The family of this 128-nucleotide RNA from Streptomyces spinoverrucosus is "Streptomyces RNA 5676". The pairing is the family consensus, mapped onto this sequence. Identified by deep sequencing of transcriptome at the end of exponential growth phase. Appears longer on northern blot than sequencing transcript. On this family, see Vockenhuber et al., RNA Biol 2011: "Deep sequencing-based identification of small non-coding RNAs in Streptomyces coelicolor". The match comes from Rfam's covariance-model search (124 bits). NCBI's taxonomy places the organism under Bacteria, Actinomycetota, Actinomycetes, Streptomycetaceae, Streptomyces.

RNA sequence: CGAUGAGAUACACCCCGCCCGCAGGGAACUGUGGGUGACAUCAGGCCGGGGCCUCCCCAGCUUCGACCUGGUCGUGCCCUCGCGCACACAACCGGGGCCCUCGGCCCCGGGUCUCCUCACCGAUCGGA
Numbered sequence: 001c002g003a004u005g006a007g008a009u010a011c012a013c014c015c016c017g018c019c020c021g022c023a024g025g026g027a028a029c030u031g032u033g034g035g036u037g038a039c040a041u042c043a044g045g046c047c048g049g050g051g052c053c054u055c056c057c058c059a060g061c062u063u064c065g066a067c068c069u070g071g072u073c074g075u076g077c078c079c080u081c082g083c084g085c086a087c088a089c090a091a092c093c094g095g096g097g098c099c100c101u102c103g104g105c106c107c108c109g110g111g112u113c114u115c116c117u118c119a120c121c122g123a124u125c126g127g128a
Base pairs, nucleotide, nucleotide: 004119005118006117007116008114016037017036018035019034020033021032022031023030024029040072041071042070043069044068045067047065048064049063050062051061052060074087075086076085077084092110093109094108095107096106097105098104099103120127121126